[Rfam]
RNA sequence: GAGCGUCAAGGGCAAACCGGUGCGAAAGGCCGGGGCGCAAAGCCAUGGGUCUACGGGAUAUCUCUAUCCUAUGACUGCCAGGUUGCCGCA
Numbered sequence: 001g002a003g004c005g006u007c008a009a010g011g012g013c014a015a016a017c018c019g020g021u022g023c024g025a026a027a028g029g030c031c032g033g034g035g036c037g038c039a040a041a042g043c044c045a046u047g048g049g050u051c052u053a054c055g056g057g058a059u060a061u062c063u064c065u066a067u068c069c070u071a072u073g074a075c076u077g078c079c080a081g082g083u084u085g086c087c088g089c090a
Stems, first nucleotide, its partner, number of pairs: 012038002017033005023028001041084004046080003049075003056069004
Shown here is a 90-nucleotide sequence from Brevibacillus sp. SYP-B805, a member of the family "c-di-GMP-I riboswitch aptamer". Rfam links the family to the GO term cyclic-di-GMP binding. A search with the family's covariance model found it, with a score of 73 bits. NCBI's taxonomy places the organism under Bacteria, Bacillota, Bacilli, Caryophanales, Brevibacillus.